[Rfam]
RNA sequence: UUUAAUUACUGAACAAUACUGUUGCAGUGAAUAGUUUGGAUGUGAACUUAGGUUUAAGUGUAUUGUAAAUACACCGCACCAUCUAGGAGAACAGAGUAAACUCUGUUCUUUUUUAAUUAGG
Numbered sequence: 001u002u003u004a005a006u007u008a009c010u011g012a013a014c015a016a017u018a019c020u021g022u023u024g025c026a027g028u029g030a031a032u033a034g035u036u037u038g039g040a041u042g043u044g045a046a047c048u049u050a051g052g053u054u055u056a057a058g059u060g061u062a063u064u065g066u067a068a069a070u071a072c073a074c075c076g077c078a079c080c081a082u083c084u085a086g087g088a089g090a091a092c093a094g095a096g097u098a099a100a101c102u103c104u105g106u107u108c109u110u111u112u113u114u115a116a117u118u119a120g121g
Stems, first nucleotide, its partner, number of pairs: 007029005012023003032085003036081001041078004045054003058074006086111010